[Rfam]
RNA sequence: GGGAACGGAUGGGCUCCGGUGGGCUCCGCGGUCCUCAAAACCGUUGCGAGGCGUGCAAAACGUCUUGGAUGUGUUCGAUUCACAUACGUUCCC
Numbered sequence: 001g002g003g004a005a006c007g008g009a010u011g012g013g014c015u016c017c018g019g020u021g022g023g024c025u026c027c028g029c030g031g032u033c034c035u036c037a038a039a040a041c042c043g044u045u046g047c048g049a050g051g052c053g054u055g056c057a058a059a060a061c062g063u064c065u066u067g068g069a070u071g072u073g074u075u076c077g078a079u080u081c082a083c084a085u086a087c088g089u090u091c092c093c
Base pairs, nucleotide, nucleotide: 001093002092003091004090005089006088007087009085011026012025013024014023015022016021028044029043030042031041032040047067048066049065050064051063070084071083072082073081
This 93-nucleotide RNA sequence from Collinsella aerofaciens belongs to the Rfam family "Selenocysteine transfer RNA". A search with the family's covariance model found it, with a score of 65 bits. The family has 109 seed sequences and 4,211 matches in Rfam 15.1.